This 56-nucleotide RNA from Sphingomonas parapaucimobilis belongs to the Rfam family "nhaA-I RNA". Acidobacteria, Alphaproteobacteria, Betaproteobacteria and Gammaproteobacteria, Verrucomicrobia, cand. division NC10.
Nucleotides: 056
Base pairs, nucleotide, nucleotide: 005027006026007025008024009023010022011021037056038055039054040053041052042051043050
Number, partner (000 for none) and nucleotide at each position: 001000g002000g003000g004000u005027g006026u007025u008024c009023g010022c011021a012000g013000a014000u015000c016000g017000c018000u019000g020000g021011u022010g023009c024008g025007g026006g027005c028000a029000g030000g031000u032000u033000c034000u035000a036000a037056c038055g039054u040053u041052g042051g043050u044000c045000g046000g047000g048000c049000c050043g051042c052041c053040a054039a055038c056037g